[Rfam]
RNA sequence: GGCGACGACGAAGAGGGCGAUGGAACGAGCGACAAGCAUGGAUCAACCCUCGCACACACCCCCAUGCCCUCCAGCAGGGGACCUUGGUCACCCCACCUGGCACACCCCUAACUCACAGGAGUGAACCCUCUCGAUCACCCACACGACCGCCGACAUUGCGACCUAGGCUCGCGCCACAACAUCAACACGACGGCCCUCGGCCGGGGUGCCACCCGGACCGAGGGCCUGACCGACAAGGAAGUAGAGGCUUCCCU
Numbered sequence: 001g002g003c004g005a006c007g008a009c010g011a012a013g014a015g016g017g018c019g020a021u022g023g024a025a026c027g028a029g030c031g032a033c034a035a036g037c038a039u040g041g042a043u044c045a046a047c048c049c050u051c052g053c054a055c056a057c058a059c060c061c062c063c064a065u066g067c068c069c070u071c072c073a074g075c076a077g078g079g080g081a082c083c084u085u086g087g088u089c090a091c092c093c094c095a096c097c098u099g100g101c102a103c104a105c106c107c108c109u110a111a112c113u114c115a116c117a118g119g120a121g122u123g124a125a126c127c128c129u130c131u132c133g134a135u136c137a138c139c140c141a142c143a144c145g146a147c148c149g150c151c152g153a154c155a156u157u158g159c160g161a162c163c164u165a166g167g168c169u170c171g172c173g174c175c176a177c178a179a180c181a182u183c184a185a186c187a188c189g190a191c192g193g194c195c196c197u198c199g200g201c202c203g204g205g206g207u208g209c210c211a212c213c214c215g216g217a218c219c220g221a222g223g224g225c226c227u228g229a230c231c232g233a234c235a236a237g238g239a240a241g242u243a244g245a246g247g248c249u250u251c252c253c254u
Base pairs, nucleotide, nucleotide: 007234009232010231016075019072088124089123090122091121093119139166192226193225194224195223196222198220199219200218202215203214204213205212237252238251239250240249241248
Shown here is a 254-nucleotide RNA, a member of the family "Streptomyces sRNA 4677". Pairs were carried over by alignment from the consensus structure. The match comes from Rfam's covariance-model search (45 bits). The family's RNA type in Rfam is small RNA. Rfam 15.1 lists 563 matches to the family in 285 species. Rfam describes the family as follows. Located in the intergenic region between anti-sigma factor SCO4677 gene and a putative regulatory protein gene SCO4676. scr4677 expression requires the SCO4677 activity and scr4677 sRNA itself seem to affect the levels of the SCO4676-associated transcripts.